[Rfam]
This 102-nucleotide RNA from Bacilli bacterium VT-13-104 belongs to the Rfam family "SAM riboswitch aptamer (S box leader)". Its family is annotated with regulation of gene expression in the Gene Ontology. The SAM riboswitch is found upstream of a number of genes which code for proteins involved in methionine or cysteine biosynthesis in Gram-positive bacteria. The family's consensus secondary structure is taken from published work.

RNA sequence: UUCUUAUCCAGAGAGGUGGAGGGACUGGCCCUUGGAAGCCUCGGCAGCGGACUUGUAAAAGUACUGUGCCAAUUCCAGAAGCAAUAAGCUUAGAGAUAAGAA
Number, nucleotide and partner (000 for none) at each position: 001u102002u101003c100004u099005u098006a097007u096008c095009c000010a000011g000012a000013g042014a041015g040016g039017u038018g000019g000020a000021g031022g030023g029024a000025c078026u077027g076028g075029c023030c022031c021032u000033u000034g000035g000036a000037a000038g017039c016040c015041u014042c013043g070044g069045c068046a067047g000048c066049g065050g000051a062052c061053u060054u059055g000056u000057a000058a000059a054060a053061g052062u051063a000064c000065u049066g048067u046068g045069c044070c043071a000072a000073u000074u094075c028076c027077a026078g025079a091080a090081g089082c088083a000084a000085u000086a000087a000088g082089c081090u080091u079092a000093g000094a074095g008096a007097u006098a005099a004100g003101a002102a001